[Rfam]
RNA sequence: ACCACAUAUUUACCUACUAUAUAUUAGGUGAAAUACAUGUAUUUUGGCUACUAUAUAGUAGGUAAUUAUGUGGUUU
Number, nucleotide and partner (000 for none) at each position: 001a074002c073003c072004a071005c070006a069007u068008a067009u000010u065011u064012a063013c062014c061015u060016a000017c058018u057019a056020u055021a054022u053023a052024u000025u050026a049027g048028g000029u046030g045031a044032a000033a042034u041035a040036c000037a000038u000039g000040u035041a034042u033043u000044u031045u030046g029047g000048c027049u026050a025051c000052u023053a022054u021055a020056u019057a018058g017059u000060a015061g014062g013063u012064a011065a010066u000067u008068a007069u006070g005071u004072g003073g002074u001075u000076u000

This 76-nucleotide sequence from Ameiurus melas belongs to the Rfam family "mir-7563 microRNA precursor family". The family's consensus secondary structure was predicted with RNAalifold. The family has 3 seed sequences and 362 matches in Rfam 15.1. A search with the family's covariance model found it, with a score of 81 bits. Rfam links the family to the GO terms miRNA-mediated post-transcriptional gene silencing and RISC complex.